About this RNA:
The record is a 179-nucleotide sequence from Phaeobacter sp. CECT 5382, which matches "Ruegeria cis52 sRNA" in Rfam. The family's consensus secondary structure was predicted with RNAfold. A search with the family's covariance model found it, with a score of 124 bits. NCBI's taxonomy places the organism under Bacteria, Alphaproteobacteria, Rhodobacterales, Roseobacteraceae, Phaeobacter. Its family is annotated with regulation of gene expression in the Gene Ontology.
RNA sequence: UUCGGAGCGCAUGUUUCAGAACGAUAUUGUGGAAGCUGACACCUUUGAGCCGCGCAGUCCGGAUGUACUGCGCAGUCAUGACUUCGGUCAUUGAGGCGCGCGUCAUGCGGGCGAUAUAGCCCAUACCAUAAAGCGCAAUCGUCAGCACCGGCAGAAAGAAGUUCUCGAAGGUCGGAUUG
Numbered sequence: 001u002u003c004g005g006a007g008c009g010c011a012u013g014u015u016u017c018a019g020a021a022c023g024a025u026a027u028u029g030u031g032g033a034a035g036c037u038g039a040c041a042c043c044u045u046u047g048a049g050c051c052g053c054g055c056a057g058u059c060c061g062g063a064u065g066u067a068c069u070g071c072g073c074a075g076u077c078a079u080g081a082c083u084u085c086g087g088u089c090a091u092u093g094a095g096g097c098g099c100g101c102g103u104c105a106u107g108c109g110g111g112c113g114a115u116a117u118a119g120c121c122c123a124u125a126c127c128a129u130a131a132a133g134c135g136c137a138a139u140c141g142u143c144a145g146c147a148c149c150g151g152c153a154g155a156a157a158g159a160a161g162u163u164c165u166c167g168a169a170g171g172u173c174g175g176a177u178u179g
Stems, first nucleotide, its partner, number of pairs: 005140002009136002012133001014131002016128001019126001021124001028123002031120001040111001042109001046105003051100004055075001057073002060070003082096005146179002148175005154165001156163002